[Rfam]
RNA sequence: UGAUUUUAAAUGUUUUAAAAUCUUCUGUUUUAAAAUUCUGCUCUACACUACAGAUGCAAGAAAAACAUCCUCGCGCUUUCUGCCUGCCUGAUUGUGGCAGCCCAGAUUGAAUGGGGGAACACAGGG
Numbered sequence: 001u002g003a004u005u006u007u008a009a010a011u012g013u014u015u016u017a018a019a020a021u022c023u024u025c026u027g028u029u030u031u032a033a034a035a036u037u038c039u040g041c042u043c044u045a046c047a048c049u050a051c052a053g054a055u056g057c058a059a060g061a062a063a064a065a066c067a068u069c070c071u072c073g074c075g076c077u078u079u080c081u082g083c084c085u086g087c088c089u090g091a092u093u094g095u096g097g098c099a100g101c102c103c104a105g106a107u108u109g110a111a112u113g114g115g116g117g118a119a120c121a122c123a124g125g126g
Stems, first nucleotide, its partner, number of pairs: 001052002005047001007045002010042001015033007068118005076109001079106004084100005
Record summary:
Small nucleolar RNA SNORA31: a 126-nucleotide RNA sequence from Bos taurus. The family's RNA type in Rfam is H/ACA-box small nucleolar RNA. Taxonomically the source falls in Bos (Eukaryota, Vertebrata, Sarcopterygii, Mammalia). Rfam's curators write: ACA31 (SNORA31) belongs to the H/ACA class of snoRNAs which are thought to guide the sites of modification of uridines to pseudouridines. ACA31 is predicted to guide the pseudouridylation of U3713 in 28S rRNA and U218 in 18S rRNA. This family includes the mouse homologue snoMBI-161. The family's consensus secondary structure was predicted with RNAalifold. Gene Ontology terms of the family: nucleolus and RNA processing.